[Rfam]
RNA sequence: GCAGUCCGUCCCAUGGACGCACCUACGGUCCCGGGCGGCGUCCGGCUACGCUGGCGAGGUGCGCCUUCCCCGAGAAGGACGCAAAGCCGACAGCCGUCGCAUCCCUGGGAGAUCAUCCAUG
Numbered sequence: 001g002c003a004g005u006c007c008g009u010c011c012c013a014u015g016g017a018c019g020c021a022c023c024u025a026c027g028g029u030c031c032c033g034g035g036c037g038g039c040g041u042c043c044g045g046c047u048a049c050g051c052u053g054g055c056g057a058g059g060u061g062c063g064c065c066u067u068c069c070c071c072g073a074g075a076a077g078g079a080c081g082c083a084a085a086g087c088c089g090a091c092a093g094c095c096g097u098c099g100c101a102u103c104c105c106u107g108g109g110a111g112a113u114c115a116u117c118c119a120u121g
Base pairs, nucleotide, nucleotide: 060083061082062081063080065077066076067075068074086100087099089098090097091096
Shown here is a 121-nucleotide RNA from Streptomyces sp. ACT-1, a member of the family "Streptomyces-metH RNA". The family's RNA type in Rfam is small RNA.